[Rfam]
Shown here is a 72-nucleotide RNA sequence from Aspergillus rambellii, a member of the family "tRNA". Rfam classes the family as a transfer RNA. NCBI's taxonomy places the organism under Eukaryota, Eurotiomycetidae, Aspergillaceae, Aspergillus, Aspergillus subgen. Nidulantes.

RNA sequence: GGGCUUGUGGUUUAGGGGUAUAACGCUCCAUUCGCAUUGGAGAGGUCCCGGGUUCGAUUCCCGGCGAGUCCA
Numbered sequence: 001g002g003g004c005u006u007g008u009g010g011u012u013u014a015g016g017g018g019u020a021u022a023a024c025g026c027u028c029c030a031u032u033c034g035c036a037u038u039g040g041a042g043a044g045g046u047c048c049c050g051g052g053u054u055c056g057a058u059u060c061c062c063g064g065c066g067a068g069u070c071c072a
Base pairs, nucleotide, nucleotide: 001071002070003069004068005067006066007065010024011023012022026042027041028040029039030038048064049063050062051061052060